[Rfam]
Annotation: mir-275 microRNA precursor family: an 86-nucleotide RNA sequence from Sitophilus oryzae. For this family Rfam cites "Anopheles gambiae miRNAs as actors of defence reaction against Plasmodium invasion" (Winter et al., Nucleic Acids Res, 2007). The family's consensus secondary structure was predicted with RNAalifold.
RNA sequence: ACGUCUGUAGCUAUGAGCGCUACUUCGGUAUCUAGGCUGUGUUUCAAUCAGUCAGGUACCUGAAGUAGCGCGCGUAGAUGCAGAUU
Numbered sequence: 001a002c003g004u005c006u007g008u009a010g011c012u013a014u015g016a017g018c019g020c021u022a023c024u025u026c027g028g029u030a031u032c033u034a035g036g037c038u039g040u041g042u043u044u045c046a047a048u049c050a051g052u053c054a055g056g057u058a059c060c061u062g063a064a065g066u067a068g069c070g071c072g073c074g075u076a077g078a079u080g081c082a083g084a085u086u
Base pairs, nucleotide, nucleotide: 009079011077012076014074017071018070019069020068021067022066030057031056032055035053036052037051038050